[Rfam]
RNA sequence: CCUGCCGCUGUACCCGUCUUGUAAUGCAUUGACUAGUACAGUCCAGAGGCGAGCUGACAGAAAGUGCCAACUUAGGAAACAGAAUUAUUCCUUUUGUGGGUAACUUAGUGCUGAAGUCUGGGAACAGGC
Numbered sequence: 001c002c003u004g005c006c007g008c009u010g011u012a013c014c015c016g017u018c019u020u021g022u023a024a025u026g027c028a029u030u031g032a033c034u035a036g037u038a039c040a041g042u043c044c045a046g047a048g049g050c051g052a053g054c055u056g057a058c059a060g061a062a063a064g065u066g067c068c069a070a071c072u073u074a075g076g077a078a079a080c081a082g083a084a085u086u087a088u089u090c091c092u093u094u095u096g097u098g099g100g101u102a103a104c105u106u107a108g109u110g111c112u113g114a115a116g117u118c119u120g121g122g123a124a125c126a127g128g129c
Stems, first nucleotide, its partner, number of pairs: 005049002008046003018036002021033001022031002065122001067120001069119001070117004075112002080108001082106002085103001088100003
RNA: Small nucleolar RNA SNORA65
Organism: Thalassarche chlororhynchos